Shown here is a 129-nucleotide RNA sequence from Acinonyx jubatus, a member of the family "U8 small nucleolar RNA".
The source organism's lineage runs through Eukaryota, Deuterostomia, Dipnotetrapodomorpha, Mammalia and Acinonyx.
Its family is annotated with RNA processing and nucleolus in the Gene Ontology.
A search with the family's covariance model found it, with a score of 67 bits.
Pairs were carried over by alignment from the consensus structure, which is taken from published work.

Nucleotides: 129
Stems, first nucleotide, its partner, number of pairs: 023046002027043006072082002074079001091117006098110001
Number, partner (000 for none) and nucleotide at each position: 001000a002000c003000a004000u005000a006000a007000g008000u009000a010000g011000g012000a013000u014000g015000a016000u017000c018000c019000u020000u021000a022000c023046c024045u025000g026000u027043u028042c029041u030040u031039u032038c033000u034000u035000u036000u037000g038032g039031g040030g041029g042028g043027a044000g045024g046023g047000c048000u049000u050000g051000g052000a053000a054000c055000a056000u057000g058000a059000g060000g061000a062000u063000u064000u065000g066000a067000g068000u069000u070000c071000c072082c073081a074079u075000g076000a077000u078000u079074a080000a081073u082072g083000u084000c085000u086000u087000u088000g089000u090000a091117u092116a093115a094114u095113c096112a097000a098110g099000a100000c101000u102000u103000g104000c105000a106000a107000u108000g109000c110098c111000c112096u113095g114094a115093u116092u117091g118000c119000u120000c121000c122000u123000a124000u125000c126000u127000u128000c129000u